This 197-nucleotide RNA from Corynebacterium canis belongs to the Rfam family "c-di-AMP riboswitch aptamer (ydaO/yuaA leader)". Gene Ontology terms of the family: cyclic-di-AMP binding and regulation of gene expression.
RNA sequence: AACCGAACAAUGCCUAAUCGCAUUUGCUUCAAAGCCUCCGGCAAGUGGAGGUGGUGAAUGUGAACCGGGGAACCAAACCUUAUUCAUUCUGGGGUGAGUUCCGUGUGAGAGCGCUUUGAUAAAAGCGUGGAUCCGGAUAGGGAGCCUUCCGCUUCCGAACCCGACAGCUAACCCGGUCGGCCAACAAAGGAAGAUUU
Dot-bracket structure: ...........(((...(((((((((((........................)))))))))))((((((....((..............))(((.....((((..............................))))..((((.........))))...))).........)))))).)))................